[Rfam]
RNA: ilvH RNA
RNA sequence: GACGAAUCUAUUGGCUGCCAAGCCUGCCGCUUACCGGCGGCGGGGGAGGGCACCGAAAAGAGGAAUCG
Numbered sequence: 001g002a003c004g005a006a007u008c009u010a011u012u013g014g015c016u017g018c019c020a021a022g023c024c025u026g027c028c029g030c031u032u033a034c035c036g037g038c039g040g041c042g043g044g045g046g047a048g049g050g051c052a053c054c055g056a057a058a059a060g061a062g063g064a065a066u067c068g
Stems, first nucleotide, its partner, number of pairs: 011056003016052004023044009